RNA sequence: AGAUUAUCAAGAGUGGUUGAGGGACUGGCCCUGCGACACCACAGCAACCUGCGUUUGUAAGGUGCUAAUACCUGCGGUAAGAUAAUACCGAAUGAUGAAUU
Numbered sequence: 001a002g003a004u005u006a007u008c009a010a011g012a013g014u015g016g017u018u019g020a021g022g023g024a025c026u027g028g029c030c031c032u033g034c035g036a037c038a039c040c041a042c043a044g045c046a047a048c049c050u051g052c053g054u055u056u057g058u059a060a061g062g063u064g065c066u067a068a069u070a071c072c073u074g075c076g077g078u079a080a081g082a083u084a085a086u087a088c089c090g091a092a093u094g095a096u097g098a099a100u101u
Stems, first nucleotide, its partner, number of pairs: 001101002004098005013042005021031003025074001027072002043066004048062002050059003070093001075090005